Source information
Molybdenum/Tungsten riboswitch aptamer (Moco RNA motif): a 122-nucleotide sequence from Desulfoscipio gibsoniae. The base pairs follow the family's consensus structure, which is taken from published work. The source organism's lineage runs through Bacteria, Bacillota, Desulfallaceae, Desulfoscipio and Desulfoscipio gibsoniae. The literature on the family includes a 2007 paper in Nucleic Acids Res by Weinberg et al., "Identification of 22 candidate structured RNAs in bacteria using the CMfinder comparative genomics pipeline".
RNA sequence: AAAUAUGUGCCUCUACGAUUUUGGUUGCCUGUAGCUGAUAAAGUAUGGCAACCAGAACUAUAGGGUGCGGCUGGAAACGGCUGUUGCCUCCCAUUAUGGAAAGUAGAGCUAAAUAAGUCUCA
Numbered sequence: 001a002a003a004u005a006u007g008u009g010c011c012u013c014u015a016c017g018a019u020u021u022u023g024g025u026u027g028c029c030u031g032u033a034g035c036u037g038a039u040a041a042a043g044u045a046u047g048g049c050a051a052c053c054a055g056a057a058c059u060a061u062a063g064g065g066u067g068c069g070g071c072u073g074g075a076a077a078c079g080g081c082u083g084u085u086g087c088c089u090c091c092c093a094u095u096a097u098g099g100a101a102a103g104u105a106g107a108g109c110u111a112a113a114u115a116a117g118u119c120u121c122a
Stems, first nucleotide, its partner, number of pairs: 004115001006113001011108006019057011033044001036041001063089005068083006090099002